Record summary: Rfam assigns this 96-nucleotide RNA sequence from Flavobacterium crassostreae to the family "SAM-I/IV (S-adenosyl methionine) riboswitch aptamer". Gene Ontology terms of the family: regulation of gene expression and S-adenosylmethionine metabolic process. NCBI's taxonomy places the organism under Bacteria, Pseudomonadati, Bacteroidota, Flavobacteriales, Flavobacterium.
RNA sequence: AGCCGUUAUCACGAAUCUCUAGGGAGAUAGCAACCUGCAGCAACAAGCAAGGUGCUAAAACGAUAAGCCAAAUUCUUUGGAAAAAACGUUGUUUUA
Numbered sequence: 001a002g003c004c005g006u007u008a009u010c011a012c013g014a015a016u017c018u019c020u021a022g023g024g025a026g027a028u029a030g031c032a033a034c035c036u037g038c039a040g041c042a043a044c045a046a047g048c049a050a051g052g053u054g055c056u057a058a059a060a061c062g063a064u065a066a067g068c069c070a071a072a073u074u075c076u077u078u079g080g081a082a083a084a085a086a087c088g089u090u091g092u093u094u095u096a
Stems, first nucleotide, its partner, number of pairs: 006066005015028005029056003034052003037048002043090001068080004